[Rfam]
This 88-nucleotide RNA sequence belongs to the Rfam family "Small nucleolar RNA SNORD79". Rfam's curators put it in the seed alignment. Pairs were carried over by alignment from the consensus structure, which was predicted with PFOLD. snoRNA U79 or Z22 is found in intron 7 of the gas5 gene in humans and is also present in mice. Rfam 15.1 lists 784 matches to the family in 651 species.

RNA sequence: UACUGUUAGUGAUGAUUUUAAAAUUAAAAGCAGAUGGGAAUCUCUCUGAGAAAGAAAAUGGGAGAUUAAUCCUUAACCUGAAACAGUA
Numbered sequence: 001u002a003c004u005g006u007u008a009g010u011g012a013u014g015a016u017u018u019u020a021a022a023a024u025u026a027a028a029a030g031c032a033g034a035u036g037g038g039a040a041u042c043u044c045u046c047u048g049a050g051a052a053a054g055a056a057a058a059u060g061g062g063a064g065a066u067u068a069a070u071c072c073u074u075a076a077c078c079u080g081a082a083a084c085a086g087u088a
Stems, first nucleotide, its partner, number of pairs: 001088007
Its Rfam clan is "SNORD74 clan". It is annotated as a C/D-box small nucleolar RNA. Gene Ontology terms of the family: RNA processing and nucleolus.